[Rfam]
RNA: MIR8024 microRNA precursor family
Nucleotides: 086
Base pairs, nucleotide, nucleotide: 001084002083003082004081005080006079009075010074011073012072013071014070017067018066019065020064021063025058026057028055032052033051034050035049
Number, partner (000 for none) and nucleotide at each position: 001084u002083u003082g004081a005080a006079g007000a008000a009075u010074u011073u012072g013071a014070a015000g016000a017067c018066u019065u020064c021063a022000a023000c024000u025058u026057g027000a028055a029000a030000a031000u032052u033051u034050a035049a036000u037000u038000g039000a040000u041000u042000u043000g044000a045000g046000a047000c048000u049035u050034u051033a052032a053000c054000u055028u056000g057026c058025a059000a060000a061000c062000u063021u064020g065019a066018a067017g068000a069000a070014u071013u072012u073011a074010a075009a076000g077000a078000c079006u080005u081004u082003c083002a084001a085000c086000u